Rfam assigns this 103-nucleotide sequence from Mycobacterium avium to the family "Bacterial small signal recognition particle RNA". On this family, see Rosenblad et al., RNA Biol 2009: "Kinship in the SRP RNA family". Pairs were carried over by alignment from the consensus structure, which is taken from published work. Gene Ontology terms of the family: signal recognition particle, plasma membrane targeting and SRP-dependent cotranslational protein targeting to membrane, signal sequence recognition.
RNA sequence: UGGGUGGACCCCGCGCGGCGUCUAUCCUGUGAACUCCCCCAGGGCCGGAAGGCAGCAAGGGUCAACGGGCUCUGUCGGGUGCGCGGGGUCCCCUACCUUCGAU
Numbered sequence: 001u002g003g004g005u006g007g008a009c010c011c012c013g014c015g016c017g018g019c020g021u022c023u024a025u026c027c028u029g030u031g032a033a034c035u036c037c038c039c040c041a042g043g044g045c046c047g048g049a050a051g052g053c054a055g056c057a058a059g060g061g062u063c064a065a066c067g068g069g070c071u072c073u074g075u076c077g078g079g080u081g082c083g084c085g086g087g088g089u090c091c092c093c094u095a096c097c098u099u100c101g102a103u
Stems, first nucleotide, its partner, number of pairs: 004096004010087006016079001019077002022074001026069005036061003044053003